Annotation:
A member of the RNA family "Ruegeria cis8 sRNA" from Roseovarius sp. THAF27, 129 nucleotides long. Rfam classes the family as a small RNA. The organism belongs to Roseovarius, within Bacteria.
RNA sequence: AAUGCUCAGCACCUUGGCGAUGUAGGGGAUCAGCGGCAGGUUCAGAACCAGCAGCACCAGGUUGCCGAUGAACAUCGACAUGAUUACCGCCCAGAACACCUGUGGCUCGUCCACCAUCAGGCGCGGGCC
Numbered sequence: 001a002a003u004g005c006u007c008a009g010c011a012c013c014u015u016g017g018c019g020a021u022g023u024a025g026g027g028g029a030u031c032a033g034c035g036g037c038a039g040g041u042u043c044a045g046a047a048c049c050a051g052c053a054g055c056a057c058c059a060g061g062u063u064g065c066c067g068a069u070g071a072a073c074a075u076c077g078a079c080a081u082g083a084u085u086a087c088c089g090c091c092c093a094g095a096a097c098a099c100c101u102g103u104g105g106c107u108c109g110u111c112c113a114c115c116a117u118c119a120g121g122c123g124c125g126g127g128c129c
Stems, first nucleotide, its partner, number of pairs: 003019003007016003027129002030126002034123002037120001039115003044110001047107001049105001051103004062094003074084003